[Rfam]
RNA sequence: UUCCCGUUUCUCCUCCCUGAGCGGGCGUCUUUACCCUGUAAAGACUUUUGAUGCCCCUGACCUCCCCCUUUGGUUCAGGGGCGUUUUUUU
Numbered sequence: 001u002u003c004c005c006g007u008u009u010c011u012c013c014u015c016c017c018u019g020a021g022c023g024g025g026c027g028u029c030u031u032u033a034c035c036c037u038g039u040a041a042a043g044a045c046u047u048u049u050g051a052u053g054c055c056c057c058u059g060a061c062c063u064c065c066c067c068c069u070u071u072g073g074u075u076c077a078g079g080g081g082c083g084u085u086u087u088u089u090u
Base pairs, nucleotide, nucleotide: 003025004024005023006022007021008020027045028044029043030042031041032040033039053082054081055080056079057078058077059076060075
RNA: Burkholderia RNA 7 (anti-hemB)
Organism: Sideroxydans sp. CL21